[Rfam]
RNA sequence: GGUAGUAACAGCUAAGCAGAGUGGGAAUCUCUGCCACCGAAGGGGCUAGGAUUCCUCAGCAAUGUUCGUCAGCUGAGGGUUAGCCGGUCCUAAGGUCAUCGGUAACUCCAGAUGAUCGAAAGGGAAACAGGUUAAUAUUCCUGUGCCAUGAAAGCAAUAGCGGCAACGUCGGUGUCUUUUCCUGACAUCUAUGGAUAGACUGAGUGGGACUGUCAUCCCAUUCACCUGCAUAAAUCCAGGAAGAUGCGUCAUGCAGAGAACUGGAUGAAAGCAGUAACAGCCUGACACUUAAGUUGGGUUCAGUUGACUCCCUGGAUCAGUGAAAAGGGAAAAGAUGUAUGCUUUUGUGUCCGUACCGAGAACCGACACAGGUGCCCCUAGGUGAGAAGCCUAAGGUGUGU
Numbered sequence: 001g002g003u004a005g006u007a008a009c010a011g012c013u014a015a016g017c018a019g020a021g022u023g024g025g026a027a028u029c030u031c032u033g034c035c036a037c038c039g040a041a042g043g044g045g046c047u048a049g050g051a052u053u054c055c056u057c058a059g060c061a062a063u064g065u066u067c068g069u070c071a072g073c074u075g076a077g078g079g080u081u082a083g084c085c086g087g088u089c090c091u092a093a094g095g096u097c098a099u100c101g102g103u104a105a106c107u108c109c110a111g112a113u114g115a116u117c118g119a120a121a122g123g124g125a126a127a128c129a130g131g132u133u134a135a136u137a138u139u140c141c142u143g144u145g146c147c148a149u150g151a152a153a154g155c156a157a158u159a160g161c162g163g164c165a166a167c168g169u170c171g172g173u174g175u176c177u178u179u180u181c182c183u184g185a186c187a188u189c190u191a192u193g194g195a196u197a198g199a200c201u202g203a204g205u206g207g208g209a210c211u212g213u214c215a216u217c218c219c220a221u222u223c224a225c226c227u228g229c230a231u232a233a234a235u236c237c238a239g240g241a242a243g244a245u246g247c248g249u250c251a252u253g254c255a256g257a258g259a260a261c262u263g264g265a266u267g268a269a270a271g272c273a274g275u276a277a278c279a280g281c282c283u284g285a286c287a288c289u290u291a292a293g294u295u296g297g298g299u300u301c302a303g304u305u306g307a308c309u310c311c312c313u314g315g316a317u318c319a320g321u322g323a324a325a326a327g328g329g330a331a332a333a334g335a336u337g338u339a340u341g342c343u344u345u346u347g348u349g350u351c352c353g354u355a356c357c358g359a360g361a362a363c364c365g366a367c368a369c370a371g372g373u374g375c376c377c378c379u380a381g382g383u384g385a386g387a388a389g390c391c392u393a394a395g396g397u398g399u400g401u
Base pairs, nucleotide, nucleotide: 016034017033018032019031020030021029035398036397037396038395043377044376045375046374049357050356054078055077056076057075058074059073063071064070085353086352087351089123090122094117095116096115097114098113099112101109102108127144128143129142130141131140147349148348149347150346151345152344153343154342181329182328183327187317188316189315190314191313193311194310195309198305199304200303201302202301203222204221205220206219207218208217226274227273228272229271235265236264237263238262239261245255246254247253286293363372364371379393380392381391382390